[Rfam]
RNA: Mammalian CPEB3 ribozyme
Organism: Crocodylus porosus
RNA sequence: GGUGUAUAGAAGGGGGCCAUAACAGAAGCAUUUGUGUUGUGACCCCUGUCAGGUAAUACCUGGUAAUGCCUGCAAAUCCUGCU
Numbered sequence: 001g002g003u004g005u006a007u008a009g010a011a012g013g014g015g016g017c018c019a020u021a022a023c024a025g026a027a028g029c030a031u032u033u034g035u036g037u038u039g040u041g042a043c044c045c046c047u048g049u050c051a052g053g054u055a056a057u058a059c060c061u062g063g064u065a066a067u068g069c070c071u072g073c074a075a076a077u078c079c080u081g082c083u
Base pairs, nucleotide, nucleotide: 013046014045015044016043018041021083023081024080025079027077028040029039030038050072051071052070053069054068055067